The family of this 236-nucleotide RNA is "IS605-orfB-I RNA".

RNA sequence: GCUGCGUAAAUGCUAUUUAGCCCAAGAGAGCUAGUAUCAUCCCUGCGUUGGCGAGAAUCUCAUAAUAGAAUGAUAUGGUAAAGUGGAUUGUAAUCCCUUGAAAAUAUGAAAAAUAUUUAAGAGAGAAAUCCAAUAGCUAUAUCGCAAUGGUUAGCCGUAUGACCGCAGGAGAGUUACCUGAAACAUGAUGAAAAAUUGUAGAAUUCAUUAGAAUUCACAUUAUUUUUUACGGUUGA
Numbered sequence: 001g002c003u004g005c006g007u008a009a010a011u012g013c014u015a016u017u018u019a020g021c022c023c024a025a026g027a028g029a030g031c032u033a034g035u036a037u038c039a040u041c042c043c044u045g046c047g048u049u050g051g052c053g054a055g056a057a058u059c060u061c062a063u064a065a066u067a068g069a070a071u072g073a074u075a076u077g078g079u080a081a082a083g084u085g086g087a088u089u090g091u092a093a094u095c096c097c098u099u100g101a102a103a104a105u106a107u108g109a110a111a112a113a114u115a116u117u118u119a120a121g122a123g124a125g126a127a128a129u130c131c132a133a134u135a136g137c138u139a140u141a142u143c144g145c146a147a148u149g150g151u152u153a154g155c156c157g158u159a160u161g162a163c164c165g166c167a168g169g170a171g172a173g174u175u176a177c178c179u180g181a182a183a184c185a186u187g188a189u190g191a192a193a194a195a196u197u198g199u200a201g202a203a204u205u206c207a208u209u210a211g212a213a214u215u216c217a218c219a220u221u222a223u224u225u226u227u228u229a230c231g232g233u234u235g236a
Stems, first nucleotide, its partner, number of pairs: 001052002004048005010040003014036002017034005022028001071144008084132006096123001097121006148165005154233006160185001167179003170175001190226004195221001197219003201215001
Dot-bracket structure: ((.(((((.(((.((.((((((.....).))))))).)))...)))))..))..................((((((((.....((((((......(((((((.............)))))).)...))))))....))))))))...[[[[[.(((((((]]]]].((((....).))).....)....((((.(.(((.(.............).))).).)))).))))))...